[Rfam]
RNA: SAM-I/IV (S-adenosyl methionine) riboswitch aptamer
Organism: Flammeovirga pectinis
RNA sequence: UCUAAACAUCAAGAACCUUAUCAAAAUGAUGAAGGUGCCAACCGAGCAAAGCAAGCCACGGUGGCAAAAUAGAUGUGGUCUGAUUCUAGACAAAAAUAACAGAAUCC
Numbered sequence: 001u002c003u004a005a006a007c008a009u010c011a012a013g014a015a016c017c018u019u020a021u022c023a024a025a026a027u028g029a030u031g032a033a034g035g036u037g038c039c040a041a042c043c044g045a046g047c048a049a050a051g052c053a054a055g056c057c058a059c060g061g062u063g064g065c066a067a068a069a070u071a072g073a074u075g076u077g078g079u080c081u082g083a084u085u086c087u088a089g090a091c092a093a094a095a096a097u098a099a100c101a102g103a104a105u106c107c
Base pairs, nucleotide, nucleotide: 006076007075008074009073010072015036016034018033019032037065038064039063042061043060044059046056047055078091079090080089081088